[Rfam]
Overview: sRNA-Xcc1: an 86-nucleotide sequence from Plasticicumulans acidivorans. On this family, see Chen et al., RNA Biol 2011: "sRNA-Xcc1, an integron-encoded transposon- and plasmid-transferred trans-acting sRNA, is under the positive control of the key virulence regulators HrpG and HrpX of Xanthomonas campestris pathovar campestris". By type it is a small RNA.

RNA sequence: GCCGGGAGGGCGCGCCGAUACGACACCCGCGAGGGGAAAAGCGCGCGCCGUUCUGUUGACGGCUUUCAGCCUCCCGGCGCCCCUGC
Numbered sequence: 001g002c003c004g005g006g007a008g009g010g011c012g013c014g015c016c017g018a019u020a021c022g023a024c025a026c027c028c029g030c031g032a033g034g035g036g037a038a039a040a041g042c043g044c045g046c047g048c049c050g051u052u053c054u055g056u057u058g059a060c061g062g063c064u065u066u067c068a069g070c071c072u073c074c075c076g077g078c079g080c081c082c083c084u085g086c
Stems, first nucleotide, its partner, number of pairs: 001078009013045003026035003047063005